A member of the RNA family "Nematode snoRNA ceN105" from Caenorhabditis japonica, 151 nucleotides long.
[Rfam]
RNA sequence: UCUUGCCGUGAAUCUUGGUCGACGUGUUUAAUUUACCCUCGUUGUCUGUAAAGGCCGGCAUAUACCAUUUCGAUGUAGUUAAGAUAGAUAUUUGUUGAAAAUGCAUUAAAAUUUCCAAGCAUUUUCUAGUUUUCUUUCAUUCAUCGAACAU
Numbered sequence: 001u002c003u004u005g006c007c008g009u010g011a012a013u014c015u016u017g018g019u020c021g022a023c024g025u026g027u028u029u030a031a032u033u034u035a036c037c038c039u040c041g042u043u044g045u046c047u048g049u050a051a052a053g054g055c056c057g058g059c060a061u062a063u064a065c066c067a068u069u070u071c072g073a074u075g076u077a078g079u080u081a082a083g084a085u086a087g088a089u090a091u092u093u094g095u096u097g098a099a100a101a102u103g104c105a106u107u108a109a110a111a112u113u114u115c116c117a118a119g120c121a122u123u124u125u126c127u128a129g130u131u132u133u134c135u136u137u138c139a140u141u142c143a144u145c146g147a148a149c150a151u
Stems, first nucleotide, its partner, number of pairs: 004060005010055001016048003020044005026038001029035002071146005077141003081133003085128004090123001

The match comes from Rfam's covariance-model search (82 bits).